[Rfam]
RNA sequence: AAAUCGAAAAGGCAAACCUUCCGAAAGGUAGGGGCGCAAAGCCACAGGCCUAAGGCUGAGCUAAGGCAGCUGGGUUGCCGAA
Numbered sequence: 001a002a003a004u005c006g007a008a009a010a011g012g013c014a015a016a017c018c019u020u021c022c023g024a025a026a027g028g029u030a031g032g033g034g035c036g037c038a039a040a041g042c043c044a045c046a047g048g049c050c051u052a053a054g055g056c057u058g059a060g061c062u063a064a065g066g067c068a069g070c071u072g073g074g075u076u077g078c079c080g081a082a
Stems, first nucleotide, its partner, number of pairs: 012037002017032003021028002040076004045072003048067003055061002